Shown here is a 76-nucleotide RNA from Lupinus albus, a member of the family "Plastid-ycf2 5UTR RNA". The base pairs follow the family's consensus structure, which was predicted with LocARNA. A reference for the family is Richter et al. (2023), "Retrograde signaling in plants: A critical review focusing on the GUN pathway and beyond", Plant Commun.
RNA sequence: AAGUAUCUUAGUAGGAAUUGAACCUACGAAUUCGCCAAUUAUGAGUUGGGCGAUAUAACCAUUCAACCAUGGAUGC
Numbered sequence: 001a002a003g004u005a006u007c008u009u010a011g012u013a014g015g016a017a018u019u020g021a022a023c024c025u026a027c028g029a030a031u032u033c034g035c036c037a038a039u040u041a042u043g044a045g046u047u048g049g050g051c052g053a054u055a056u057a058a059c060c061a062u063u064c065a066a067c068c069a070u071g072g073a074u075g076c
Base pairs, nucleotide, nucleotide: 003076004075005074006073007072008071011027012026013025014024015023041070042069043068045067046066047065048064049063050062052060
Overview:
A search with the family's covariance model found it, with a score of 79 bits. The family has 204 seed sequences and 3,521 matches in Rfam 15.1. It is annotated as a cis-regulatory element.